[Rfam]
The family of this 108-nucleotide RNA sequence from Halobacillus salinus is "PyrR binding site". Taxonomically the source falls in Halobacillus (Bacteria, Bacillati, Bacillota, Bacilli). The family's RNA type in Rfam is cis-regulatory element. The family's consensus secondary structure is taken from published work. A search with the family's covariance model found it, with a score of 64 bits. About the family: This family represents the PyrR binding site and terminator structure. This RNA structure is found upstream of a variety of genes involved in pyrimidine biosynthesis and transport.
RNA sequence: AAGACCUUUAAGAACAGUCCCGUGAGGCUGGGAAGGUGACGGUGAAACACGUAGGAGACGUGUAUUCUAAGCCCCUUUUCUGCCUUCAUGCGGAAAAGGGGCUUUUCU
Numbered sequence: 001a002a003g004a005c006c007u008u009u010a011a012g013a014a015c016a017g018u019c020c021c022g023u024g025a026g027g028c029u030g031g032g033a034a035g036g037u038g039a040c041g042g043u044g045a046a047a048c049a050c051g052u053a054g055g056a057g058a059c060g061u062g063u064a065u066u067c068u069a070a071g072c073c074c075c076u077u078u079u080c081u082g083c084c085u086u087c088a089u090g091c092g093g094a095a096a097a098g099g100g101g102c103u104u105u106u107c108u
Stems, first nucleotide, its partner, number of pairs: 004037006015030005044066002047063001050060003070103014